A member of the RNA family "Alphaproteobacterial ar14" from Fulvimarina pelagi, 124 nucleotides long.
Smr14C2 was renamed NfeR1 (Nodule Formation Efficiency RNA) highly expressed in salt stress and during the symbiotic interaction on legume roots.
The family's RNA type in Rfam is small RNA.
The literature on the family includes a 2012 paper in RNA Biol by del Val et al., "A survey of sRNA families in alpha-proteobacteria".
Its family is annotated with biological process involved in symbiotic interaction in the Gene Ontology.
Lineage of the source: Bacteria > Hyphomicrobiales > Aurantimonadaceae > Fulvimarina > Fulvimarina pelagi.
Rfam 15.1 lists 784 matches to the family in 332 species.
[Rfam]
RNA sequence: AGGGUUUCGCUUCGGGCUCACCUCCUCCCGGGCUUCGAAGCGGAUCAAGGGGCCUACACUCCUCCUCCCAACGUAGGCUCCGUUCAUACGACACCCGCCGGUCCUCCCCCGGCGGGUGUUGUUC
Numbered sequence: 001a002g003g004g005u006u007u008c009g010c011u012u013c014g015g016g017c018u019c020a021c022c023u024c025c026u027c028c029c030g031g032g033c034u035u036c037g038a039a040g041c042g043g044a045u046c047a048a049g050g051g052g053c054c055u056a057c058a059c060u061c062c063u064c065c066u067c068c069c070a071a072c073g074u075a076g077g078c079u080c081c082g083u084u085c086a087u088a089c090g091a092c093a094c095c096c097g098c099c100g101g102u103c104c105u106c107c108c109c110c111g112g113c114g115g116g117u118g119u120u121g122u123u124c
Stems, first nucleotide, its partner, number of pairs: 007043003011039006017032001049081009091119011